[Rfam]
RNA sequence: CGACUAAGAUUACAGUUUGUAAUUGAUGGUGUUAGCUGGUGUUGGAUAGGGGUGUUACAUGACAAGAGACGAAGACAAUCAGCUUGAUGUCAACGUCUUGUAGUAAUUAGCAGGUACUAGUCGGUACCUGCUAAUUACUAUUAUUUAUUAAUAUAUUACAG
Numbered sequence: 001c002g003a004c005u006a007a008g009a010u011u012a013c014a015g016u017u018u019g020u021a022a023u024u025g026a027u028g029g030u031g032u033u034a035g036c037u038g039g040u041g042u043u044g045g046a047u048a049g050g051g052g053u054g055u056u057a058c059a060u061g062a063c064a065a066g067a068g069a070c071g072a073a074g075a076c077a078a079u080c081a082g083c084u085u086g087a088u089g090u091c092a093a094c095g096u097c098u099u100g101u102a103g104u105a106a107u108u109a110g111c112a113g114g115u116a117c118u119a120g121u122c123g124g125u126a127c128c129u130g131c132u133a134a135u136u137a138c139u140a141u142u143a144u145u146u147a148u149u150a151a152u153a154u155a156u157u158a159c160a161g
Stems, first nucleotide, its partner, number of pairs: 009023005027048002030044001059145001062142001066099006074091001078088003102139017